[Rfam]
RNA sequence: AGCCGGGUCCUGCGCAACAGGCGGCCGUAAACCCCGUCAGGCCCGGAAGGGAGCAGCGGUAGCGGUUUGAAUGUGUGCCGCGGGGGUGCCCGGCUGUC
Numbered sequence: 001a002g003c004c005g006g007g008u009c010c011u012g013c014g015c016a017a018c019a020g021g022c023g024g025c026c027g028u029a030a031a032c033c034c035c036g037u038c039a040g041g042c043c044c045g046g047a048a049g050g051g052a053g054c055a056g057c058g059g060u061a062g063c064g065g066u067u068u069g070a071a072u073g074u075g076u077g078c079c080g081c082g083g084g085g086g087u088g089c090c091c092g093g094c095u096g097u098c
Stems, first nucleotide, its partner, number of pairs: 004092005009084006015075001017074003022069001023067006034059004042051003
A member of the RNA family "Bacterial small signal recognition particle RNA" from Pelovirga terrestris, 98 nucleotides long. By type it is a non-coding RNA gene. Pairs were carried over by alignment from the consensus structure, which is taken from published work. About the family: The signal recognition particle (SRP) is a universally conserved ribonucleoprotein involved in the co-translational targeting of proteins to membranes. The source organism's lineage runs through Bacteria, Pseudomonadati, Geobacterales, Geobacteraceae and Pelovirga.